[Rfam]
RNA sequence: AUUGCGGACCGGGCCCCUCUGGCGGGCGUUGUUUGACGACGCUCGUGAUGUCGGACCGCAUCG
Numbered sequence: 001a002u003u004g005c006g007g008a009c010c011g012g013g014c015c016c017c018u019c020u021g022g023c024g025g026g027c028g029u030u031g032u033u034u035g036a037c038g039a040c041g042c043u044c045g046u047g048a049u050g051u052c053g054g055a056c057c058g059c060a061u062c063g
Stems, first nucleotide, its partner, number of pairs: 006057002009054004022046010
RNA: terC RNA
Organism: Alteraurantiacibacter aquimixticola